Rfam assigns this 61-nucleotide RNA to the family "RAGATH-18 RNA". Rfam's curators write: Actinobacteria, Firmicutes, Fusobacteria, Thermotogae (1 example). The sequence is in the family's curated seed alignment.
RNA sequence: GCUGUGGAGUGCCACACAAACGCAAGUAGCUACGGCGAAAGCGGGUACUGAGAAGCAGUAA
Numbered sequence: 001g002c003u004g005u006g007g008a009g010u011g012c013c014a015c016a017c018a019a020a021c022g023c024a025a026g027u028a029g030c031u032a033c034g035g036c037g038a039a040a041g042c043g044g045g046u047a048c049u050g051a052g053a054a055g056c057a058g059u060a061a
Stems, first nucleotide, its partner, number of pairs: 001059005009048005021043003029036002